[Rfam]
RNA sequence: UCGGCGGGCCGUGACUGGCGCGCUGGGAUGGAACAACCAUCGGGGAGCGGCUCCUGGACCGAGUCCAGACCGAGUGCCGUGCGCCUGGGCCGUACCG
Numbered sequence: 001u002c003g004g005c006g007g008g009c010c011g012u013g014a015c016u017g018g019c020g021c022g023c024u025g026g027g028a029u030g031g032a033a034c035a036a037c038c039a040u041c042g043g044g045g046a047g048c049g050g051c052u053c054c055u056g057g058a059c060c061g062a063g064u065c066c067a068g069a070c071c072g073a074g075u076g077c078c079g080u081g082c083g084c085c086u087g088g089g090c091c092g093u094a095c096c097g
Base pairs, nucleotide, nucleotide: 004055006053007052008051009050010049011048012047015044016043017085018084019083020082021081028040029039030038031037076090077089078088